A member of the RNA family "SAM riboswitch aptamer (S box leader)" from Arachidicoccus ginsenosidimutans, 106 nucleotides long. The base pairs follow the family's consensus structure, which is taken from published work. A search with the family's covariance model found it, with a score of 90 bits.

RNA sequence: UUCUUAUCAAGAAAGGCAGAGGGAAUGGUCCGAUGAAGCCUUGGCAACCUCACGAAAGUGAAAGGUGCCACAUCCAACCGAAUAAAAUUGUUCGGGCAGAUAAGUC
Numbered sequence: 001u002u003c004u005u006a007u008c009a010a011g012a013a014a015g016g017c018a019g020a021g022g023g024a025a026u027g028g029u030c031c032g033a034u035g036a037a038g039c040c041u042u043g044g045c046a047a048c049c050u051c052a053c054g055a056a057a058g059u060g061a062a063a064g065g066u067g068c069c070a071c072a073u074c075c076a077a078c079c080g081a082a083u084a085a086a087a088u089u090g091u092u093c094g095g096g097c098a099g100a101u102a103a104g105u106c
Base pairs, nucleotide, nucleotide: 003104004103005102006101007100008099013042014041015040016039017038021031022030023029026076027075028074043069044068045067046066048065049064050061051060052059053058073098078095079094080093081092082091083090